[Rfam]
Shown here is a 264-nucleotide sequence from Lachnospiraceae bacterium TWA4, a member of the family "Bacterial large signal recognition particle RNA". It is annotated as a non-coding RNA gene. Pairs were carried over by alignment from the consensus structure, which is taken from published work. Rfam describes the family as follows. The signal recognition particle (SRP) is a universally conserved ribonucleoprotein involved in the co-translational targeting of proteins to membranes. Its Rfam clan is "SRP clan".

RNA sequence: CCGUGCGACUGGGGAGUUAGCGGUGCCUUGUAACCUGCAAUCCGCUACAGCAGGGGUUAUGUCUGGACUGAGGGCUAGCUAUUGUAGAGCUGCCCCUAGUAAGUGGCGAUGAAGCUUGGGUCUUGCGCAACAGAAUCUUAUGAACCGUGUCAGGUCAGGAAUGAAGCAGCACUAAGUAAGACACUCUGUGUGCCGUAAGGUCGCCUGGGCAGAGUUAACUGCUAGGGUACCGUCUAUGGUACUAGUUCGAAGCCAGAUGCACGG
Numbered sequence: 001c002c003g004u005g006c007g008a009c010u011g012g013g014g015a016g017u018u019a020g021c022g023g024u025g026c027c028u029u030g031u032a033a034c035c036u037g038c039a040a041u042c043c044g045c046u047a048c049a050g051c052a053g054g055g056g057u058u059a060u061g062u063c064u065g066g067a068c069u070g071a072g073g074g075c076u077a078g079c080u081a082u083u084g085u086a087g088a089g090c091u092g093c094c095c096c097u098a099g100u101a102a103g104u105g106g107c108g109a110u111g112a113a114g115c116u117u118g119g120g121u122c123u124u125g126c127g128c129a130a131c132a133g134a135a136u137c138u139u140a141u142g143a144a145c146c147g148u149g150u151c152a153g154g155u156c157a158g159g160a161a162u163g164a165a166g167c168a169g170c171a172c173u174a175a176g177u178a179a180g181a182c183a184c185u186c187u188g189u190g191u192g193c194c195g196u197a198a199g200g201u202c203g204c205c206u207g208g209g210c211a212g213a214g215u216u217a218a219c220u221g222c223u224a225g226g227g228u229a230c231c232g233u234c235u236a237u238g239g240u241a242c243u244a245g246u247u248c249g250a251a252g253c254c255a256g257a258u259g260c261a262c263g264g
Stems, first nucleotide, its partner, number of pairs: 001264007008057003011029004016024003034054005062257003066254001068252002072248005078243001080241008091229002095226006103219002105216003114210008122199006128190002131188004136181006147172004155164003